Group II catalytic intron D1-D4-6: a 200-nucleotide sequence from delta proteobacterium NaphS2. Its family is annotated with Group II intron splicing in the Gene Ontology. The base pairs follow the family's consensus structure. The source organism's lineage runs through Bacteria, delta/epsilon subdivisions and Deltaproteobacteria.
RNA sequence: CACUGGGUAGUGAGUCUUGGAUCGACGGGAGUAUCCCCGAGAUUAAGCGUAGGACAGCGAGACGAUAGCCGUAAGCCAUAAGGUGAAGGGAUUGAGCCUCGAAAGGAUUAGUUGAGAGGGACGACGUUUAACUUUGACGGAAGUCAAAAUGACCAUUGGCGAAUGGCAAGUCAAUGGCGCCUCUCCGGGGUCUGAGACCA
Numbered sequence: 001c002a003c004u005g006g007g008u009a010g011u012g013a014g015u016c017u018u019g020g021a022u023c024g025a026c027g028g029g030a031g032u033a034u035c036c037c038c039g040a041g042a043u044u045a046a047g048c049g050u051a052g053g054a055c056a057g058c059g060a061g062a063c064g065a066u067a068g069c070c071g072u073a074a075g076c077c078a079u080a081a082g083g084u085g086a087a088g089g090g091a092u093u094g095a096g097c098c099u100c101g102a103a104a105g106g107a108u109u110a111g112u113u114g115a116g117a118g119g120g121a122c123g124a125c126g127u128u129u130a131a132c133u134u135u136g137a138c139g140g141a142a143g144u145c146a147a148a149a150u151g152a153c154c155a156u157u158g159g160c161g162a163a164u165g166g167c168a169a170g171u172c173a174a175u176g177g178c179g180c181c182u183c184u185c186c187g188g189g190g191u192c193u194g195a196g197a198c199c200a
Base pairs, nucleotide, nucleotide: 008060010058011057014055015054016052017051018049019048020044021043022042023041026039027038028037029036093194094192096191097190098189099188100187101186114185115184116183117182118181119180120145121144122143125139126138127137128136150179151178153177154176155175156174157173158172159171160170